[Rfam]
RNA sequence: GGAUAGCGACGAUGGAUCAUGAAAAUCAUUCGCAUGUCAGACUUCAGAGAUGCCAUGGCAUUGAUGAGAAGAUAUUUCAUGUUCUGAGCAUCA
Dot-bracket structure: .(((.((.........................................((((......)))).........................))))).
RNA: Small nucleolar RNA R64/Z200 family